[Rfam]
RNA sequence: UCAGUCGGCUGGGCAGCCGCGCUUGUCUCAUGUUAAGAUAGGUGAGGAAAGUCCGGGCUCCAUGGAAAAACGGUGCCGGGUAACACCCGGCGGGGGUGACCCUAGGGAAAGUGCCACAGAAAGCAAACCGCCUAUUUUUAUAGGUAAGGGUGAAAAGGUGAGGUAAGAGCUCACCGCGCACGCAGUAAUGGGUGUGGCAAGGUAAACCCCACCGGGAGCAAGACCAAAUAGAAAUGACGUGCAAGGUUUGGCUUGCAGCCAGUUUCCAGGUGAGUCAUUUGGGUAGGUUGCACGAGGCGGAUGGUAACAUCCGUCCUAGAUGAAUGGUUGCCAUGUAAAGUAUAAGCUUUACCAUACAGAACCCGGCUUAUAGGCCGACUGAUAUU
Numbered sequence: 001u002c003a004g005u006c007g008g009c010u011g012g013g014c015a016g017c018c019g020c021g022c023u024u025g026u027c028u029c030a031u032g033u034u035a036a037g038a039u040a041g042g043u044g045a046g047g048a049a050a051g052u053c054c055g056g057g058c059u060c061c062a063u064g065g066a067a068a069a070a071c072g073g074u075g076c077c078g079g080g081u082a083a084c085a086c087c088c089g090g091c092g093g094g095g096g097u098g099a100c101c102c103u104a105g106g107g108a109a110a111g112u113g114c115c116a117c118a119g120a121a122a123g124c125a126a127a128c129c130g131c132c133u134a135u136u137u138u139u140a141u142a143g144g145u146a147a148g149g150g151u152g153a154a155a156a157g158g159u160g161a162g163g164u165a166a167g168a169g170c171u172c173a174c175c176g177c178g179c180a181c182g183c184a185g186u187a188a189u190g191g192g193u194g195u196g197g198c199a200a201g202g203u204a205a206a207c208c209c210c211a212c213c214g215g216g217a218g219c220a221a222g223a224c225c226a227a228a229u230a231g232a233a234a235u236g237a238c239g240u241g242c243a244a245g246g247u248u249u250g251g252c253u254u255g256c257a258g259c260c261a262g263u264u265u266c267c268a269g270g271u272g273a274g275u276c277a278u279u280u281g282g283g284u285a286g287g288u289u290g291c292a293c294g295a296g297g298c299g300g301a302u303g304g305u306a307a308c309a310u311c312c313g314u315c316c317u318a319g320a321u322g323a324a325u326g327g328u329u330g331c332c333a334u335g336u337a338a339a340g341u342a343u344a345a346g347c348u349u350u351a352c353c354a355u356a357c358a359g360a361a362c363c364c365g366g367c368u369u370a371u372a373g374g375c376c377g378a379c380u381g382a383u384a385u386u
Stems, first nucleotide, its partner, number of pairs: 001382010011371001012332007020044009049369003053366005058218004069265001071214005076090005091105001092103004106209002111207002113203003128149002130145006157175006176198001177196005183190002222289004232280006260272002263269001296315008
Notes: Bacterial RNase P class A: a 386-nucleotide RNA sequence from Bartonella bacilliformis. The family's RNA type in Rfam is ribozyme. It is one of the family's seed sequences. Lineage of the source: Bacteria > Pseudomonadati > Pseudomonadota > Hyphomicrobiales > Bartonella bacilliformis.